This 69-nucleotide RNA from Streptomyces malaysiensis belongs to the Rfam family "ASpks TB sRNA".

[Rfam]
RNA sequence: CUUCAGCGAACCCAGCCACAGCGGCCGCUCACGGUCCUGCCCAUAAGUGGCCAGCACAGCCUGCGCCUC
Numbered sequence: 001c002u003u004c005a006g007c008g009a010a011c012c013c014a015g016c017c018a019c020a021g022c023g024g025c026c027g028c029u030c031a032c033g034g035u036c037c038u039g040c041c042c043a044u045a046a047g048u049g050g051c052c053a054g055c056a057c058a059g060c061c062u063g064c065g066c067c068u069c
Stems, first nucleotide, its partner, number of pairs: 015025003028065001030063001032059001037054003041050003

The family's consensus secondary structure is taken from published work. Rfam 15.1 lists 9,052 matches to the family in 683 species. NCBI's taxonomy places the organism under Bacteria, Bacillati, Actinomycetota, Kitasatosporales, Streptomyces. It is annotated as an antisense RNA.